c-di-GMP-I riboswitch aptamer: an 89-nucleotide RNA from Fontibacillus phaseoli. NCBI's taxonomy places the organism under Bacteria, Bacillati, Bacillota, Bacilli, Fontibacillus.
RNA sequence: AUUUGAUAAAGGCAAACCCUUCGAAAGAUGGGGACGCAAAACUACAGGGGUUAAGGCGGAAGCUUCCGCUAAACCAGCCAGUUACCGAU
Numbered sequence: 001a002u003u004u005g006a007u008a009a010a011g012g013c014a015a016a017c018c019c020u021u022c023g024a025a026a027g028a029u030g031g032g033g034a035c036g037c038a039a040a041a042c043u044a045c046a047g048g049g050g051u052u053a054a055g056g057c058g059g060a061a062g063c064u065u066c067c068g069c070u071a072a073a074c075c076a077g078c079c080a081g082u083u084a085c086c087g088a089u
Stems, first nucleotide, its partner, number of pairs: 012037002017032003021028002040083004047079002049075003056069004